[Rfam]
RNA sequence: AAAAAAGCAGGCGUUUGUUUUUCGUGUGAACAAGCAUCUCGUAUCCUUCAGGAACAUCACUCUCAUUGUUAUUGGGUGAACCUUUAUAGGCCUUUGCCAUUGACAAAAGGUUCAGUAAAUAGUGAAACAUUG
Numbered sequence: 001a002a003a004a005a006a007g008c009a010g011g012c013g014u015u016u017g018u019u020u021u022u023c024g025u026g027u028g029a030a031c032a033a034g035c036a037u038c039u040c041g042u043a044u045c046c047u048u049c050a051g052g053a054a055c056a057u058c059a060c061u062c063u064c065a066u067u068g069u070u071a072u073u074g075g076g077u078g079a080a081c082c083u084u085u086a087u088a089g090g091c092c093u094u095u096g097c098c099a100u101u102g103a104c105a106a107a108a109g110g111u112u113c114a115g116u117a118a119a120u121a122g123u124g125a126a127a128c129a130u131u132g
Stems, first nucleotide, its partner, number of pairs: 005048003011037001014034004063125008077114007
Small nucleolar RNA snoR74: a 132-nucleotide RNA from Asparagus officinalis. The family's consensus secondary structure was predicted with WAR. On this family, see Marker et al., Curr Biol 2002: "Experimental RNomics: identification of 140 candidates for small non-messenger RNAs in the plant Arabidopsis thaliana". The organism belongs to Asparagus, within Eukaryota.